[Rfam]
RNA sequence: UCUCUCUUCUCCUCUCUCUCUCUCUCUCUUUCUCUUCUCUAGAUCAACAGACACAAAAAAGAGAAAGAAGAGAAGAGAGAAGAGAGAGAGAGAGAGAAGAGAGA
Numbered sequence: 001u002c003u004c005u006c007u008u009c010u011c012c013u014c015u016c017u018c019u020c021u022c023u024c025u026c027u028c029u030u031u032c033u034c035u036u037c038u039c040u041a042g043a044u045c046a047a048c049a050g051a052c053a054c055a056a057a058a059a060a061g062a063g064a065a066a067g068a069a070g071a072g073a074a075g076a077g078a079g080a081a082g083a084g085a086g087a088g089a090g091a092g093a094g095a096g097a098a099g100a101g102a103g104a
Base pairs, nucleotide, nucleotide: 001104002103003102004101005100006099008097009096010095011094015093016092018090019089020088022086023085024084025083027080028079030078032077033076034075035074037072038071039070040069
Dot-bracket structure: ((((((.((((...((.(((.((((.((.(.((((.((((............................)))).)))))))..)))).))).)))))).))))))